[Rfam]
RNA sequence: ACUGUGGAGUGUACAAAAACUUGCUAGUAGCGUAUAAUCGUCAAAGCAUACACAUUGAAGCAGUAA
Number, nucleotide and partner (000 for none) at each position: 001a064002c063003u062004g061005u060006g000007g000008a000009g053010u052011g051012u050013a049014c000015a000016a000017a000018a000019a000020c000021u000022u048023g047024c046025u000026a000027g000028u000029a000030g041031c040032g039033u000034a000035u000036a000037a000038u000039c032040g031041u030042c000043a000044a000045a000046g024047c023048a022049u013050a012051c011052a010053c009054a000055u000056u000057g000058a000059a000060g005061c004062a003063g002064u001065a000066a000